[Rfam]
RNA sequence: GGCGUAAAGCGCGCGUAGGCGGAUUGAUAAGUUAGGGGUGAAAUCCCGAGGCUCAACCUCGGAACUGCCUUUGAUACUGUCAGUCUUGAGUUCGAGAGAGGUGAGUGGAACUCCGAGUGUAGAGGUGAAAUUCGUAGAUAUUCGGAAGAACACCAGUGGCGAAGGCGGCUCACUGGCUCGAUACUGACGCUGAGGUGCGAAAGCGUGGGGAGCAAACAGGAUUAGAUACCCUGGUAGUCCACGCCGUAAACGAUGGAAGCUAGUUGUCAGGCAGCAUGCUGUUUGGUGACGCAGUUAACGCAUUAAGCUUCCCGCCUGGGGAGUACGGUCGCAAGAUUAAAACUCAAAGGAAU
Numbered sequence: 001g002g003c004g005u006a007a008a009g010c011g012c013g014c015g016u017a018g019g020c021g022g023a024u025u026g027a028u029a030a031g032u033u034a035g036g037g038g039u040g041a042a043a044u045c046c047c048g049a050g051g052c053u054c055a056a057c058c059u060c061g062g063a064a065c066u067g068c069c070u071u072u073g074a075u076a077c078u079g080u081c082a083g084u085c086u087u088g089a090g091u092u093c094g095a096g097a098g099a100g101g102u103g104a105g106u107g108g109a110a111c112u113c114c115g116a117g118u119g120u121a122g123a124g125g126u127g128a129a130a131u132u133c134g135u136a137g138a139u140a141u142u143c144g145g146a147a148g149a150a151c152a153c154c155a156g157u158g159g160c161g162a163a164g165g166c167g168g169c170u171c172a173c174u175g176g177c178u179c180g181a182u183a184c185u186g187a188c189g190c191u192g193a194g195g196u197g198c199g200a201a202a203g204c205g206u207g208g209g210g211a212g213c214a215a216a217c218a219g220g221a222u223u224a225g226a227u228a229c230c231c232u233g234g235u236a237g238u239c240c241a242c243g244c245c246g247u248a249a250a251c252g253a254u255g256g257a258a259g260c261u262a263g264u265u266g267u268c269a270g271g272c273a274g275c276a277u278g279c280u281g282u283u284u285g286g287u288g289a290c291g292c293a294g295u296u297a298a299c300g301c302a303u304u305a306a307g308c309u310u311c312c313c314g315c316c317u318g319g320g321g322a323g324u325a326c327g328g329u330c331g332c333a334a335g336a337u338u339a340a341a342a343c344u345c346a347a348a349g350g351a352a353u
Base pairs, nucleotide, nucleotide: 001316002315003314009313011198012197013196014195016192018191019190020189022085023084024083025082026081027080028079030078031077032074033073034072035071036070037069038068039067040066046062047061048060049059050058051057089185090184091183092181093180094179095178096177100174101173102172103171104170105169106168107151112146113145114144115143116142117141118140122133123132124131159166160165203244204243205242206241207240208239212238213237217233218232219231220230255312256311257310258309259308260307263290264289265288266287267286268285269284270283271282272281273280274279294301295300318345319344320343327338328337329336330335
The record is a 353-nucleotide part of an RNA from Pseudovibrio exalbescens, which matches "Bacterial small subunit ribosomal RNA" in Rfam. Lineage of the source: Bacteria > Pseudomonadati > Alphaproteobacteria > Hyphomicrobiales > Pseudovibrio. For this family Rfam cites "Crystal structure of the ribosome at 5.5 A resolution" (Yusupov et al., Science, 2001). The match comes from Rfam's covariance-model search (1551 bits). Clan: SSU clan.